Histone 3' UTR stem-loop: a 47-nucleotide sequence from Diabrotica balteata. By type it is a cis-regulatory element. The family's consensus secondary structure is taken from published work. The literature on the family includes a 2013 paper in Science by Tan et al., "Structure of histone mRNA stem-loop, human stem-loop binding protein, and 3'hExo ternary complex". The source organism's lineage runs through Eukaryota, Metazoa, Eumetabola, Neuropteroidea and Diabrotica. The family has 50 seed sequences and 44,596 matches in Rfam 15.1. A search with the family's covariance model found it, with a score of 35 bits.
[Rfam]
RNA sequence: AAAACGGUUCUUUUCAGAACCACAAAUUAUUAUUAAUGUUUUUCUAU
Numbered sequence: 001a002a003a004a005c006g007g008u009u010c011u012u013u014u015c016a017g018a019a020c021c022a023c024a025a026a027u028u029a030u031u032a033u034u035a036a037u038g039u040u041u042u043u044c045u046a047u
Stems, first nucleotide, its partner, number of pairs: 006021006